[Rfam]
RNA sequence: GCAAGUUCGCGUGACUGGCGCAGUGGAUGGAUCACCAUCGGGAAGCGCGGACCAAGAUCGCCGCGCGCCUGGGCAUUGGUU
Numbered sequence: 001g002c003a004a005g006u007u008c009g010c011g012u013g014a015c016u017g018g019c020g021c022a023g024u025g026g027a028u029g030g031a032u033c034a035c036c037a038u039c040g041g042g043a044a045g046c047g048c049g050g051a052c053c054a055a056g057a058u059c060g061c062c063g064c065g066c067g068c069c070u071g072g073g074c075a076u077u078g079g080u081u
Stems, first nucleotide, its partner, number of pairs: 005052008015042002017069005027038004060074003
Description
The record is an 81-nucleotide RNA from Mesorhizobium zhangyense, which matches "ZMP/ZTP riboswitch aptamer (pfl RNA motif)" in Rfam. The match comes from Rfam's covariance-model search (60 bits). The family's consensus secondary structure is taken from published work.